[Rfam]
RNA sequence: UCAAUGUGGAUAUCCUGUGAGGUUACUCUCAUGGGCUCUGUCCAAGUGGCGUAUGGGAGCGUAGUGCUUUAUGGCGCAGUGACGUACAAUCCCUUUCCACAACAUUGAAGAACAAGCAUGUCCUCGGCCAUUAGGCUGUUGUGGGCAGCGUCCUGUAUAUUCCUACAACUUCCCAAAGCCAAAAUGGCUCUUACUGGGGAGACAAACCAUGCAGGUUACAUCU
Numbered sequence: 001u002c003a004a005u006g007u008g009g010a011u012a013u014c015c016u017g018u019g020a021g022g023u024u025a026c027u028c029u030c031a032u033g034g035g036c037u038c039u040g041u042c043c044a045a046g047u048g049g050c051g052u053a054u055g056g057g058a059g060c061g062u063a064g065u066g067c068u069u070u071a072u073g074g075c076g077c078a079g080u081g082a083c084g085u086a087c088a089a090u091c092c093c094u095u096u097c098c099a100c101a102a103c104a105u106u107g108a109a110g111a112a113c114a115a116g117c118a119u120g121u122c123c124u125c126g127g128c129c130a131u132u133a134g135g136c137u138g139u140u141g142u143g144g145g146c147a148g149c150g151u152c153c154u155g156u157a158u159a160u161u162c163c164u165a166c167a168a169c170u171u172c173c174c175a176a177a178g179c180c181a182a183a184a185u186g187g188c189u190c191u192u193a194c195u196g197g198g199g200a201g202a203c204a205a206a207c208c209a210u211g212c213a214g215g216u217u218a219c220a221u222c223u
Stems, first nucleotide, its partner, number of pairs: 001108007008043005014035003019028003046100004055093004059087001061085002066080002152215007169201006178188004
RNA: Small nucleolar RNA SNORA73 family